[Rfam]
Record summary
Pyrrolysine insertion sequence mttB: a 100-nucleotide sequence from Puniceispirillum marinum. For this family Rfam cites "Effects of using coding potential, sequence conservation and mRNA structure conservation for predicting pyrroly-sine containing genes" (Theil Have et al., BMC Bioinformatics, 2013).
RNA sequence: UUGACUGGAUCAAAGACAGCUGAUGCACAAGCGGCUUAUGAAUCAACACAUACGAUUAUUCCAACCGUUAUGGGUGGGGUGAAUUUUGUCCUGCAUGCGG
Numbered sequence: 001u002u003g004a005c006u007g008g009a010u011c012a013a014a015g016a017c018a019g020c021u022g023a024u025g026c027a028c029a030a031g032c033g034g035c036u037u038a039u040g041a042a043u044c045a046a047c048a049c050a051u052a053c054g055a056u057u058a059u060u061c062c063a064a065c066c067g068u069u070a071u072g073g074g075u076g077g078g079g080u081g082a083a084u085u086u087u088g089u090c091c092u093g094c095a096u097g098c099g100g
Base pairs, nucleotide, nucleotide: 025032033062034061077098079096080095